[Rfam]
Background: The family of this 82-nucleotide RNA from Pipistrellus kuhlii is "mir-574 microRNA precursor family". A reference for the family is Lui et al. (2007), "Patterns of known and novel small RNAs in human cervical cancer", Cancer Res. The family's consensus secondary structure was predicted with RNAalifold. A search with the family's covariance model found it, with a score of 87 bits. Rfam 15.1 lists 4,084 matches to the family in 7 species.
RNA sequence: GAACACGAGAGAGAGAAGCAGGGUCUGAUCCACAGCCUCCAUGGCAGCUGUGGAUCAGCUCUUGCCUCUCUCUCUCUCUCUC
Numbered sequence: 001g002a003a004c005a006c007g008a009g010a011g012a013g014a015g016a017a018g019c020a021g022g023g024u025c026u027g028a029u030c031c032a033c034a035g036c037c038u039c040c041a042u043g044g045c046a047g048c049u050g051u052g053g054a055u056c057a058g059c060u061c062u063u064g065c066c067u068c069u070c071u072c073u074c075u076c077u078c079u080c081u082c
Stems, first nucleotide, its partner, number of pairs: 009074008018065004023060001025058006033050004